Rfam assigns this 97-nucleotide RNA sequence from Agromyces agglutinans to the family "mraW RNA".
Pairs were carried over by alignment from the consensus structure, which is taken from published work.
[Rfam]
RNA sequence: CUUCUAGCCCGGGUUGCGACUCCCAGCCGUGCGCGCCUGACGCACUUCCCCGCGACAGGACGAACGGAUGGGGAUCGGAAUCCGGGACGAGUUCCCG
Numbered sequence: 001c002u003u004c005u006a007g008c009c010c011g012g013g014u015u016g017c018g019a020c021u022c023c024c025a026g027c028c029g030u031g032c033g034c035g036c037c038u039g040a041c042g043c044a045c046u047u048c049c050c051c052g053c054g055a056c057a058g059g060a061c062g063a064a065c066g067g068a069u070g071g072g073g074a075u076c077g078g079a080a081u082c083c084g085g086g087a088c089g090a091g092u093u094c095c096c097g
Base pairs, nucleotide, nucleotide: 010084011083012082013081014080015079018076019075021073022072023071024070025069027067028066029065030064032062033061036059037058038057039056041054042053043052

The organism belongs to Agromyces, within Bacteria. By type it is a cis-regulatory element.